The family of this 89-nucleotide RNA sequence from Caenorhabditis remanei is "mir-785 microRNA precursor family".
On this family, see Ruby et al., Cell 2006: "Large-scale sequencing reveals 21U-RNAs and additional microRNAs and endogenous siRNAs in C. elegans".
The family's consensus secondary structure was predicted with RNAalifold.
The sequence is in the family's curated seed alignment.
Taxonomically the source falls in Caenorhabditis (Eukaryota, Metazoa, Rhabditida, Rhabditidae).
[Rfam]
RNA sequence: UUUUUGUCCGUCAGCGCAGAAUUUUUUCGCUUACACGAGUAAUGUAAACGAUGUAAGUGAAUAUUCUGUGUCGAUGGGUAUAAAAAGAU
Numbered sequence: 001u002u003u004u005u006g007u008c009c010g011u012c013a014g015c016g017c018a019g020a021a022u023u024u025u026u027u028c029g030c031u032u033a034c035a036c037g038a039g040u041a042a043u044g045u046a047a048a049c050g051a052u053g054u055a056a057g058u059g060a061a062u063a064u065u066c067u068g069u070g071u072c073g074a075u076g077g078g079u080a081u082a083a084a085a086a087g088a089u
Stems, first nucleotide, its partner, number of pairs: 002088004007078006014071009025061003030057006